Overview
This 135-nucleotide RNA from Xenopus laevis belongs to the Rfam family "Small Cajal body specific RNA 3". The family is grouped with related families in Rfam's "SCARNA3 clan".
[Rfam]
RNA sequence: UGUGGAAGCUGCAAUAUCUGUGCGUGCAGUACAAGUGUCUGUCCGCCAUAGCAGCCUUCCUAUAGAAAUCUUGUGGAGAUCUCUGUCCGGCUCUGCAGAGUAUGGGCUUAGCCGGAUCGUUCCCCUCCAUACAUG
Numbered sequence: 001u002g003u004g005g006a007a008g009c010u011g012c013a014a015u016a017u018c019u020g021u022g023c024g025u026g027c028a029g030u031a032c033a034a035g036u037g038u039c040u041g042u043c044c045g046c047c048a049u050a051g052c053a054g055c056c057u058u059c060c061u062a063u064a065g066a067a068a069u070c071u072u073g074u075g076g077a078g079a080u081c082u083c084u085g086u087c088c089g090g091c092u093c094u095g096c097a098g099a100g101u102a103u104g105g106g107c108u109u110a111g112c113c114g115g116a117u118c119g120u121u122c123c124c125c126u127c128c129a130u131a132c133a134u135g
Base pairs, nucleotide, nucleotide: 004060005059006058008055009054010053011052012051022046023045024044026042027041032037075128076127077126078125083119085117086116087115089113090112091111092110095107